Small nucleolar RNA SNORD102: a 72-nucleotide RNA from Orycteropus afer.

RNA sequence: AGCUUCGUGAUGACCAUCUCUUUGAUUGCUUUGAAGCAAAGUGAAAAACCCAUUUCACCGGCUCUGAAAGCU
Numbered sequence: 001a002g003c004u005u006c007g008u009g010a011u012g013a014c015c016a017u018c019u020c021u022u023u024g025a026u027u028g029c030u031u032u033g034a035a036g037c038a039a040a041g042u043g044a045a046a047a048a049c050c051c052a053u054u055u056c057a058c059c060g061g062c063u064c065u066g067a068a069a070g071c072u
Base pairs, nucleotide, nucleotide: 001072002071003070004069005068
The family's consensus secondary structure was predicted with PFOLD. The source organism's lineage runs through Eukaryota, Craniata, Eutheria, Tubulidentata and Orycteropus afer. A reference for the family is Vitali et al. (2003), "Identification of 13 novel human modification guide RNAs", Nucleic Acids Res.